[Rfam]
RNA: glycine-GGAnGA riboswitch aptamer
RNA sequence: CCGCAUGAAGACAAUCCGAAACAUUCCAUUCCCAGAUGGAAGACCGACGCGGAAAGGCAGGCUGUAUAGCGAACAGCUUGGUGAAACUGACAGGUAAAGAGAAGGUUGUCCGACGGAACUUUGGAAAGACCACUUCCAUGUGGCGCCAAUGAGGCUAUAACCAACUGGCAAAAAGACAGAGGA
Numbered sequence: 001c002c003g004c005a006u007g008a009a010g011a012c013a014a015u016c017c018g019a020a021a022c023a024u025u026c027c028a029u030u031c032c033c034a035g036a037u038g039g040a041a042g043a044c045c046g047a048c049g050c051g052g053a054a055a056g057g058c059a060g061g062c063u064g065u066a067u068a069g070c071g072a073a074c075a076g077c078u079u080g081g082u083g084a085a086a087c088u089g090a091c092a093g094g095u096a097a098a099g100a101g102a103a104g105g106u107u108g109u110c111c112g113a114c115g116g117a118a119c120u121u122u123g124g125a126a127a128g129a130c131c132a133c134u135u136c137c138a139u140g141u142g143g144c145g146c147c148a149a150u151g152a153g154g155c156u157a158u159a160a161c162c163a164a165c166u167g168g169c170a171a172a173a174a175g176a177c178a179g180a181g182g183a
Base pairs, nucleotide, nucleotide: 001116002115003114010110011109012108013107014106015105016104022042024041025040026039027038028037029036030035043095044094045093049091050089051088052087056082058080059079060078061077062076063075064074065073119181120180121179122178123177128144130143131142132141133140145169146168147167151165153162154161